[Rfam]
RNA sequence: AUAAUGAUACUUCUGUGAUGAGCAGCGGGGGCGUAUCAGUCACCCGGGGUGAGACUCCCAUGU
Numbered sequence: 001a002u003a004a005u006g007a008u009a010c011u012u013c014u015g016u017g018a019u020g021a022g023c024a025g026c027g028g029g030g031g032c033g034u035a036u037c038a039g040u041c042a043c044c045c046g047g048g049g050u051g052a053g054a055c056u057c058c059c060a061u062g063u
Stems, first nucleotide, its partner, number of pairs: 012060001013025004027045001028043001030041003047059003
pemK RNA: a 63-nucleotide RNA. The family's consensus secondary structure is taken from published work. By type it is a cis-regulatory element.